[Rfam]
Shown here is a 56-nucleotide RNA from Salvelinus namaycush, a member of the family "UnaL2 LINE 3' element". The base pairs follow the family's consensus structure, which is taken from published work. The literature on the family includes a 2004 paper in RNA by Baba et al., "Solution structure of an RNA stem-loop derived from the 3' conserved region of eel LINE UnaL2". NCBI's taxonomy places the organism under Eukaryota, Bilateria, Gnathostomata, Salmoninae, Salvelinus. About the family: The eel long interspersed element (LINE) UnaL2 and its partner short interspersed element (SINE) share a conserved 3' tail containing a stem-loop that is critical for their retrotransposition. Presumably, the first step of retrotransposition is the recognition of their 3' tails by UnaL2-encoded reverse transcriptase. It scores 55 bits against the family's covariance model. The family's RNA type in Rfam is cis-regulatory element.

RNA sequence: UAUGUGCACGCAUGACUAAGUCGCUUUGGAUAAAAGCAUCUGCUAAACGGCAUAUA
Number, nucleotide and partner (000 for none) at each position: 001u000002a000003u000004g000005u000006g000007c000008a000009c000010g000011c000012a000013u045014g043015a000016c000017u042018a041019a000020g000021u000022c000023g037024c036025u035026u034027u033028g000029g000030a000031u000032a000033a027034a026035a025036g024037c023038a000039u000040c000041u018042g017043c014044u000045a013046a000047a000048c000049g000050g000051c000052a000053u000054a000055u000056a000